[Rfam]
A member of the RNA family "SAM riboswitch aptamer (S box leader)" from Sediminibacillus albus, 108 nucleotides long. Taxonomically the source falls in Sediminibacillus (Bacteria, Bacilli, Caryophanales, Bacillaceae). The SAM riboswitch is found upstream of a number of genes which code for proteins involved in methionine or cysteine biosynthesis in Gram-positive bacteria. The family's consensus secondary structure is taken from published work.
Nucleotides: 108
Stems, first nucleotide, its partner, number of pairs: 002107007013043005021032003026082004044074004049070002051066004078100001083097006
Number, partner (000 for none) and nucleotide at each position: 001000a002107u003106c004105u005104u006103a007102u008101c009000c010000a011000g012000a013043g014042a015041a016040g017039c018000u019000g020000a021032g022031g023030g024000a025000a026082c027081u028080g029079g030023c031022c032021c033000u034000a035000u036000g037000a038000a039017g040016c041015u042014u043013c044074a045073g046072c047071a048000a049070c050069c051066u052065c053064u054063g055000a056000c057000u058000u059000c060000g061000u062000u063054c064053a065052g066051a067000a068000a069050g070049g071047u072046g073045c074044u075000a076000a077000a078100u079029c080028c081027a082026g083097c084096a085095a086094g087093a088092g089000u090000u091000a092088u093087u094086c095085u096084u097083g098000g099000g100078a101008g102007a103006u104005a105004a106003g107002a108000g